[Rfam]
The record is a 90-nucleotide RNA sequence, which matches "Small nucleolar RNA SNORD16" in Rfam. It is annotated as a C/D-box small nucleolar RNA. On this family, see Fragapane et al., EMBO J 1993: "A novel small nucleolar RNA (U16) is encoded inside a ribosomal protein intron and originates by processing of the pre-mRNA". Rfam links the family to the GO terms nucleolus and RNA processing. It is one of the family's seed sequences.
Nucleotides: 090
Stems, first nucleotide, its partner, number of pairs: 012073004021063003030055002032048005
Number, partner (000 for none) and nucleotide at each position: 001000g002000u003000c004000g005000u006000a007000a008000u009000u010000u011000g012073c013072g014071u015070c016000u017000u018000a019000c020000u021063c022062u023061g024000u025000u026000c027000a028000c029000a030055g031054c032048g033047a034046c035045a036044g037000u038000u039000g040000c041000c042000u043000g044036c045035u046034g047033u048032c049000a050000g051000u052000a053000u054031g055030c056000u057000g058000g059000u060000u061023c062022a063021g064000a065000a066000g067000g068000u069000u070015g071014a072013c073012g074000a075000a076000c077000a078000u079000u080000g081000u082000u083000a084000c085000u086000g087000a088000g089000c090000a